[Rfam]
RNA sequence: UGUGCUGCUGGAUGGAGUGAUUCGGCCCACGGGCUGUGGAAAGUCCCCGGGCCUUAACACAGAAAUGUGAAUACAGUAAUGUAUUGAGAUCUUAUAUGGGUCGGCUUGAGGCUGAGACACGUGUGGAGCUGAUGAUAGCCUCACCCACAAGAUAAUUUGGCCGCAUCUUUACAGUAAUUCACUUUAACCUCAGUGGUUAACAGAACGGGGCUUACAUCACAGCAGCAC
Numbered sequence: 001u002g003u004g005c006u007g008c009u010g011g012a013u014g015g016a017g018u019g020a021u022u023c024g025g026c027c028c029a030c031g032g033g034c035u036g037u038g039g040a041a042a043g044u045c046c047c048c049g050g051g052c053c054u055u056a057a058c059a060c061a062g063a064a065a066u067g068u069g070a071a072u073a074c075a076g077u078a079a080u081g082u083a084u085u086g087a088g089a090u091c092u093u094a095u096a097u098g099g100g101u102c103g104g105c106u107u108g109a110g111g112c113u114g115a116g117a118c119a120c121g122u123g124u125g126g127a128g129c130u131g132a133u134g135a136u137a138g139c140c141u142c143a144c145c146c147a148c149a150a151g152a153u154a155a156u157u158u159g160g161c162c163g164c165a166u167c168u169u170u171a172c173a174g175u176a177a178u179u180c181a182c183u184u185u186a187a188c189c190u191c192a193g194u195g196g197u198u199a200a201c202a203g204a205a206c207g208g209g210g211c212u213u214a215c216a217u218c219a220c221a222g223c224a225g226c227a228c
Stems, first nucleotide, its partner, number of pairs: 002228009015184006023036005041213003045210004058069004070085006087157002089153005098146004109141006186198004